Rfam assigns this 47-nucleotide RNA sequence from Gossypium gossypioides to the family "Plastid-ycf3 group II-D1 intron". It scores 61 bits against the family's covariance model. The family's consensus secondary structure was predicted with LocARNA. Its family is annotated with Group II intron splicing in the Gene Ontology. Lineage of the source: Eukaryota > Streptophyta > Embryophyta > Malvales > Gossypium.
RNA sequence: AUUCCUUCUAUCGUGUAACCCCGAUUAAUGCAACCUUAGAUACUUCA
Dot-bracket structure: .........((((........))))......(...........)...